[Rfam]
RNA sequence: GGGUGCGGUUUUCGAGAGAAGCGGGGCGGCUGCCCUCGUCCGCGCGCUCGAACGCUCCUCCGCCGGUCCGGCUUCUCCUUCGUGCGGAGGCCUUUGGAAACAAAGGCGAAAGUCGGCCGAAUGUCCGAGGGUCGCGCGGGGAUAGACUACCCGAGAGGGGAAAACAACCCUGGCUCCGGAGGCGGUGAAAAUAACAGGCGAACCGCGUCCGGGA
Numbered sequence: 001g002g003g004u005g006c007g008g009u010u011u012u013c014g015a016g017a018g019a020a021g022c023g024g025g026g027c028g029g030c031u032g033c034c035c036u037c038g039u040c041c042g043c044g045c046g047c048u049c050g051a052a053c054g055c056u057c058c059u060c061c062g063c064c065g066g067u068c069c070g071g072c073u074u075c076u077c078c079u080u081c082g083u084g085c086g087g088a089g090g091c092c093u094u095u096g097g098a099a100a101c102a103a104a105g106g107c108g109a110a111a112g113u114c115g116g117c118c119g120a121a122u123g124u125c126c127g128a129g130g131g132u133c134g135c136g137c138g139g140g141g142a143u144a145g146a147c148u149a150c151c152c153g154a155g156a157g158g159g160g161a162a163a164a165c166a167a168c169c170c171u172g173g174c175u176c177c178g179g180a181g182g183c184g185g186u187g188a189a190a191a192u193a194a195c196a197g198g199c200g201a202a203c204c205g206c207g208u209c210c211g212g213g214a
Stems, first nucleotide, its partner, number of pairs: 005206006012051005018045001064119004069115006075089004093106003129176004
RNA: Methylosinus-1 RNA